[Rfam]
RNA sequence: CGAUGGCAGUGAUGAUUCCUAUAUUGUGUUUCUCCUGAUGUACAAACAUGAGGGUGCACAGUCACUACCUCAUCUGAGCCAUCU
Numbered sequence: 001c002g003a004u005g006g007c008a009g010u011g012a013u014g015a016u017u018c019c020u021a022u023a024u025u026g027u028g029u030u031u032c033u034c035c036u037g038a039u040g041u042a043c044a045a046a047c048a049u050g051a052g053g054g055u056g057c058a059c060a061g062u063c064a065c066u067a068c069c070u071c072a073u074c075u076g077a078g079c080c081a082u083c084u
Stems, first nucleotide, its partner, number of pairs: 002083006